[Rfam]
RNA sequence: CUGUCUCUUACUUCAACAAUGUUUAGAUGGAACAG
Numbered sequence: 001c002u003g004u005c006u007c008u009u010a011c012u013u014c015a016a017c018a019a020u021g022u023u024u025a026g027a028u029g030g031a032a033c034a035g
Stems, first nucleotide, its partner, number of pairs: 001035004006031003010028001012027002015024002017021001
Dot-bracket structure: ((((.(((.(.((.(((...).)).))))))))))